[Rfam]
RNA sequence: UGCCAACUCCUAUCUCCACCUCCACGUGGUGAUCGCUGGGAGCUCUUUCUUAACGAAAAGCUGCAGACGGAGAGGG
Numbered sequence: 001u002g003c004c005a006a007c008u009c010c011u012a013u014c015u016c017c018a019c020c021u022c023c024a025c026g027u028g029g030u031g032a033u034c035g036c037u038g039g040g041a042g043c044u045c046u047u048u049c050u051u052a053a054c055g056a057a058a059a060g061c062u063g064c065a066g067a068c069g070g071a072g073a074g075g076g
Base pairs, nucleotide, nucleotide: 009076010075011074013072015070016069018030019029020028041062042061043060044059046057047056049055
RNA: drz-agam-1 ribozyme
Organism: Hermetia illucens